Annotation: Shown here is a 74-nucleotide RNA sequence from Belnapia rosea, a member of the family "Makes More Granules Regulator RNA (mmgR)". Its family is annotated with response to nitrogen compound, protein binding and DNA-templated transcription, termination in the Gene Ontology. SuhB later renamed mmgR (makes more granules regulator) was a putative non-coding RNA found multiple times in the Agrobacterium tumefaciens genome and related alpha-proteobacteria. It scores 61 bits against the family's covariance model.
[Rfam]
RNA sequence: GGUUGUUGUCUUUCUUGGACGUUUCCUCCCUAAACUCGGCGGUGGCGCAAGCCACCGCCCUUUUUUUGUCUGAA
Numbered sequence: 001g002g003u004u005g006u007u008g009u010c011u012u013u014c015u016u017g018g019a020c021g022u023u024u025c026c027u028c029c030c031u032a033a034a035c036u037c038g039g040c041g042g043u044g045g046c047g048c049a050a051g052c053c054a055c056c057g058c059c060c061u062u063u064u065u066u067u068g069u070c071u072g073a074a
Stems, first nucleotide, its partner, number of pairs: 008020004038059009